[Rfam]
RNA sequence: AUCGUUCAUCUGAGGUUCGAUCGUCUCGAUCGGGUCAUCUCAGACGGAAGUAGGGAUUCAAACCGAAGGAACGCGCU
Numbered sequence: 001a002u003c004g005u006u007c008a009u010c011u012g013a014g015g016u017u018c019g020a021u022c023g024u025c026u027c028g029a030u031c032g033g034g035u036c037a038u039c040u041c042a043g044a045c046g047g048a049a050g051u052a053g054g055g056a057u058u059c060a061a062a063c064c065g066a067a068g069g070a071a072c073g074c075g076c077u
Stems, first nucleotide, its partner, number of pairs: 003073005009044008047074001053064002
The family of this 77-nucleotide sequence from Oscillatoriales cyanobacterium M59_W2019_021 is "Glutamine riboswitch aptamer (glnA leader)". Rfam links the family to the GO term glutamine binding. It scores 50 bits against the family's covariance model. The organism belongs to Oscillatoriales, within Bacteria.